[Rfam]
RNA sequence: UAGAGAAAGGUACACUCAGGGAAGUCGGCAAAAUAGAUGCGUAAGUUCGCAAGAAGCAUUGGCUCUGAGGGCAAAAGUCAAGGGCAACAGGAGAGGCCAGUGUCCGUUCUCUUGCGGCCGUAUUGCGUGUGUUGUUUUGGGACUCGCUCCCUUAGCACGCCGCUUGCGACCGUUUUGAGUCUGUGAAGGCUACCUUUCCGAGGCGGGGCAACUCGUCUCCCCUUGGCACGGGCGUCGCUUUACGGCGGCGACCAAAGAUUGCCAACUCAGAACUGCUUACGGCGGGGAAUCCAACUGUAUAAUUAAAACAUAGGUUUGUGAUGCAUCCAAGUGGUGUAUGUCGCAAACUGAUUUCUGCCCAGUGCUCUGAAUGUCAAUGUGACGAGAUUCACCGACGCGCGGGUAAACGGCGGGAGUAACUAUGACUCUCUUAAGGUAGCCAAAUGCCUCGUCUUCCAAUUAGAGACGCGCAUGAAUGGAUUAAUGAGAUUCCCUCUGUCCCGAGUUACUAUCUAGCGAAACGACAGUCAAGGGAACGGACUUGAAG
Number, nucleotide and partner (000 for none) at each position: 001u515002a514003g513004a512005g000006a000007a000008a000009g510010g509011u508012a507013c000014a506015c505016u504017c503018a000019g501020g500021g499022a000023a000024g000025u000026c000027g000028g000029c000030a000031a000032a000033a000034u000035a000036g060037a059038u058039g057040c056041g000042u000043a000044a000045g050046u000047u000048c000049g000050c045051a000052a000053g000054a000055a000056g040057c039058a038059u037060u036061g274062g273063c000064u271065c270066u269067g268068a267069g266070g263071g262072c261073a260074a259075a000076a000077g252078u251079c250080a000081a000082g000083g246084g000085c000086a000087a000088c000089a000090g000091g133092a000093g000094a000095g000096g126097c125098c000099a123100g121101u120102g119103u000104c117105c116106g115107u114108u000109c000110u000111c000112u000113u000114g107115c106116g105117g104118c000119c102120g101121u100122a000123u099124u000125g097126c096127g000128u000129g000130u000131g000132u000133u091134g000135u000136u000137u000138u000139g000140g000141g000142a000143c000144u000145c000146g000147c000148u000149c000150c000151c000152u000153u000154a000155g000156c000157a000158c000159g000160c000161c000162g000163c000164u000165u000166g000167c000168g000169a000170c000171c000172g000173u000174u000175u000176u000177g000178a000179g000180u000181c000182u000183g000184u000185g000186a000187a000188g000189g000190c000191u000192a000193c000194c000195u000196u000197u000198c000199c000200g000201a000202g000203g000204c000205g000206g000207g000208g000209c000210a000211a000212c000213u000214c000215g000216u000217c000218u000219c000220c000221c000222c000223u000224u000225g000226g000227c000228a000229c000230g000231g000232g000233c000234g000235u000236c000237g000238c000239u000240u000241u000242a000243c000244g000245g000246c083247g000248g000249c000250g079251a078252c077253c000254a000255a000256a000257g000258a000259u074260u073261g072262c071263c070264a000265a000266c069267u068268c067269a066270g065271a064272a000273c062274u061275g280276c000277u000278u000279a000280c275281g000282g000283c000284g000285g494286g493287g492288a491289a490290u489291c488292c486293a485294a000295c000296u310297g309298u308299a000300u000301a000302a000303u000304u000305a000306a000307a000308a298309c297310a296311u000312a000313g349314g348315u347316u346317u345318g344319u343320g342321a000322u338323g000324c336325a335326u334327c333328c000329a000330a000331g000332u000333g327334g326335u325336g324337u000338a322339u000340g000341u000342c320343g319344c318345a317346a316347a315348c314349u313350g000351a000352u000353u480354u479355c478356u000357g411358c410359c409360c000361a000362g408363u407364g404365c403366u402367c401368u000369g400370a000371a000372u399373g398374u397375c000376a000377a000378u000379g392380u391381g390382a389383c000384g000385a000386g000387a000388u000389u382390c381391a380392c379393c000394g000395a000396c000397g374398c373399g372400c369401g367402g366403g365404u364405a000406a000407a363408c362409g359410g358411c357412g430413g429414g428415a427416g426417u425418a000419a000420c000421u000422a000423u000424g000425a417426c416427u415428c414429u413430c412431u435432u000433a000434a000435g431436g000437u000438a000439g000440c000441c000442a000443a000444a000445u000446g000447c000448c000449u000450c000451g467452u466453c465454u464455u463456c000457c000458a000459a000460u000461u000462a000463g455464a454465g453466a452467c451468g000469c000470g000471c000472a000473u000474g000475a000476a000477u000478g355479g354480a353481u000482u000483a000484a000485u293486g292487a000488g291489a290490u289491u288492c287493c286494c285495u000496c000497u000498g000499u021500c020501c019502c000503g017504a016505g015506u014507u012508a011509c010510u009511a000512u004513c003514u002515a001516g000517c000518g000519a000520a000521a000522c000523g000524a000525c000526a000527g000528u545529c544530a543531a542532g541533g000534g000535a000536a000537c000538g000539g000540a000541c532542u531543u530544g529545a528546a000547g000

The record is a 547-nucleotide part of an RNA from Bodo saltans, which matches "Eukaryotic large subunit ribosomal RNA" in Rfam.
Rfam links the family to the GO terms ribosome and structural constituent of ribosome.
On this family, see Yusupov et al., Science 2001: "Crystal structure of the ribosome at 5.5 A resolution".